CyVA-1 RNA: a 77-nucleotide RNA sequence from Pleurocapsa sp. PCC 7327.
RNA sequence: GCACCGUAGGGAAGUUUUGCCGUUGUGUUCCCUUACUAUACGUUGAAGGAGAGCGAUGUCAAACGUGUAGGCGGUGG
Number, nucleotide and partner (000 for none) at each position: 001g000002c076003a075004c074005c073006g072007u000008a000009g032010g031011g030012a029013a000014g000015u000016u000017u000018u000019g000020c000021c000022g000023u000024u000025g000026u000027g000028u000029u012030c011031c010032c009033u000034u000035a000036c000037u069038a068039u067040a066041c065042g064043u063044u062045g000046a000047a000048g000049g000050a000051g000052a000053g000054c000055g000056a000057u000058g000059u000060c000061a000062a044063a043064c042065g041066u040067g039068u038069a037070g000071g000072c006073g005074g004075u003076g002077g000

The base pairs follow the family's consensus structure, which is taken from published work. Cyanobacteria, Acidobacteria (1 example), Verrucomicrobia (1 example).